[Rfam]
RNA sequence: UGAAACCGCCGCGACUGGCGCGGGUGGAUGACCACCGGGGAGCGGCGCACAGACAGACCCCUGACGGUCGUACGCCUGGGCCGAGGGU
Number, nucleotide and partner (000 for none) at each position: 001u000002g000003a000004a000005a000006c000007c047008g046009c045010c044011g043012c042013g000014a000015c039016u038017g076018g075019c074020g073021c000022g000023g000024g035025u034026g033027g032028a000029u000030g000031a000032c027033c026034a025035c024036c000037g000038g016039g015040g000041a000042g012043c011044g010045g009046c008047g007048c000049a000050c000051a000052g000053a000054c000055a000056g000057a000058c000059c000060c000061c000062u000063g000064a000065c083066g082067g081068u080069c079070g000071u000072a000073c020074g019075c018076c017077u000078g000079g069080g068081c067082c066083g065084a000085g000086g000087g000088u000
RNA: ZMP/ZTP riboswitch aptamer (pfl RNA motif)
Organism: Allobogoriella caseilytica